Annotation: Shown here is a 64-nucleotide RNA sequence from Aureicoccus marinus, a member of the family "S15-Flavobacteria ribosomal protein leader". The family's RNA type in Rfam is cis-regulatory leader. Lineage of the source: Bacteria > Pseudomonadati > Flavobacteriia > Flavobacteriales > Aureicoccus.
RNA sequence: UAUAUUUGCGCCUUGAUUGAAAGUCAAUCAUAUACAUAAAAAUCAUUUCAAGAAUAUUGGCAUG
Numbered sequence: 001u002a003u004a005u006u007u008g009c010g011c012c013u014u015g016a017u018u019g020a021a022a023g024u025c026a027a028u029c030a031u032a033u034a035c036a037u038a039a040a041a042a043u044c045a046u047u048u049c050a051a052g053a054a055u056a057u058u059g060g061c062a063u064g
Base pairs, nucleotide, nucleotide: 014030015029016028017027018026019025
It scores 70 bits against the family's covariance model. A reference for the family is Eckert and Weinberg (2020), "Discovery of 20 novel ribosomal leader candidates in bacteria and archaea", BMC Microbiol.